[Rfam]
RNA sequence: AGUCAAGAUAGAGGCGCAAGAGUCAAGAAUUCUUUUAUGAAUAGAUGCAACUAAAAAGAAAGAGGGGCAAUUGCCGAAGGAGUUAUAAUUUGCAUGUUAUGAUUUCCUGGGGGUAUAGAGAAUAUCUAUGCCACUGUCACUUUAAGAGAUUAAAGUGGGGUGCUAUUGCGUUC
Numbered sequence: 001a002g003u004c005a006a007g008a009u010a011g012a013g014g015c016g017c018a019a020g021a022g023u024c025a026a027g028a029a030u031u032c033u034u035u036u037a038u039g040a041a042u043a044g045a046u047g048c049a050a051c052u053a054a055a056a057a058g059a060a061a062g063a064g065g066g067g068c069a070a071u072u073g074c075c076g077a078a079g080g081a082g083u084u085a086u087a088a089u090u091u092g093c094a095u096g097u098u099a100u101g102a103u104u105u106c107c108u109g110g111g112g113g114u115a116u117a118g119a120g121a122a123u124a125u126c127u128a129u130g131c132c133a134c135u136g137u138c139a140c141u142u143u144a145a146g147a148g149a150u151u152a153a154a155g156u157g158g159g160g161u162g163c164u165a166u167u168g169c170g171u172u173c
Stems, first nucleotide, its partner, number of pairs: 007167005016074004022068003031059006078108003081104008109135002112132008137158007
RNA: Lysine riboswitch aptamer